This 54-nucleotide RNA sequence from Coregonus sp. 'balchen' belongs to the Rfam family "UnaL2 LINE 3' element". NCBI's taxonomy places the organism under Eukaryota, Vertebrata, Euteleosteomorpha, Protacanthopterygii, Coregonus. Pairs were carried over by alignment from the consensus structure, which is taken from published work. Rfam 15.1 lists 493,311 matches to the family in 99 species. It is annotated as a cis-regulatory element.

RNA sequence: UGCCCUUGCUACUGUAAGUCUCUCUGGAUAAGAGUGUCUGCUAAAUGACUAAAA
Numbered sequence: 001u002g003c004c005c006u007u008g009c010u011a012c013u014g015u016a017a018g019u020c021u022c023u024c025u026g027g028a029u030a031a032g033a034g035u036g037u038c039u040g041c042u043a044a045a046u047g048a049c050u051a052a053a054a
Stems, first nucleotide, its partner, number of pairs: 013043001014041003020036001022034004